The record is a 53-nucleotide sequence from Yeosuana aromativorans, which matches "Whalefall-1 RNA" in Rfam. The organism belongs to Yeosuana, within Bacteria. Pairs were carried over by alignment from the consensus structure, which is taken from published work. Rfam classes the family as a small RNA.
[Rfam]
RNA sequence: AAACCUCUCCUUUGGAGAGGUCGAAACAACGUAUAGUUGUUUCGGGUGAGGAC
Numbered sequence: 001a002a003a004c005c006u007c008u009c010c011u012u013u014g015g016a017g018a019g020g021u022c023g024a025a026a027c028a029a030c031g032u033a034u035a036g037u038u039g040u041u042u043c044g045g046g047u048g049a050g051g052a053c
Base pairs, nucleotide, nucleotide: 004020005019006018007017008016009015010014023043024042025041026040027039028038029037030036